RNA sequence: AUCAGUACCCUCAUAAUGGCACUGACUUGUCUGUUGUAAUAGGUAAGUGCUUUUGUUGAGGUAGUUUCA
Numbered sequence: 001a002u003c004a005g006u007a008c009c010c011u012c013a014u015a016a017u018g019g020c021a022c023u024g025a026c027u028u029g030u031c032u033g034u035u036g037u038a039a040u041a042g043g044u045a046a047g048u049g050c051u052u053u054u055g056u057u058g059a060g061g062u063a064g065u066u067u068c069a
Stems, first nucleotide, its partner, number of pairs: 004065001006063004011058001013056004018051006025044003
Dot-bracket structure: ...(.((((.(.((((.((((((.(((..............))).)))))).)))).).)))).)....

Background:
A member of the RNA family "miR-430 microRNA precursor family" from Carassius auratus, 69 nucleotides long. The family's consensus secondary structure was predicted with RNAalifold. Clan: mir-290 clan. Rfam links the family to the GO terms miRNA-mediated post-transcriptional gene silencing and RISC complex.